[Rfam]
RNA sequence: AACCCGAAGUUUGCGUCCGGGAAAUGACGUAUACCUCCCUGUUGGACUGGGCCGGACUUAAGUGUCCGGCCCUUUUU
Numbered sequence: 001a002a003c004c005c006g007a008a009g010u011u012u013g014c015g016u017c018c019g020g021g022a023a024a025u026g027a028c029g030u031a032u033a034c035c036u037c038c039c040u041g042u043u044g045g046a047c048u049g050g051g052c053c054g055g056a057c058u059u060a061a062g063u064g065u066c067c068g069g070c071c072c073u074u075u076u077u
Stems, first nucleotide, its partner, number of pairs: 012031006050071008

Shown here is a 77-nucleotide sequence from Sulfitobacter brevis, a member of the family "Singlet oxygen resistance RNA X".
Gene Ontology term of the family: response to photooxidative stress.
Rfam describes the family as follows. SorX (RSs2461)like SorY is a singlet oxygen induced sRNA that counteracts oxidative stress by targeting mRNA for a transporter in Rhodobacter. It also has an impact on resistance against organic hydroperoxides. It targets SD sequence of potA mRNA via an aSD sequence. The aSD sequence and some neighbouring nucleotides are identical to the one of SorY (targets takP mRNA).
Pairs were carried over by alignment from the consensus structure.
Rfam classes the family as a small RNA.
On this family, see Peng et al., RNA Biol 2016: "Regulation of a polyamine transporter by the conserved 3' UTR-derived sRNA SorX confers resistance to singlet oxygen and organic hydroperoxides in Rhodobacter sphaeroides".
The match comes from Rfam's covariance-model search (61 bits).
Taxonomically the source falls in Sulfitobacter (Bacteria, Pseudomonadati, Pseudomonadota, Roseobacteraceae).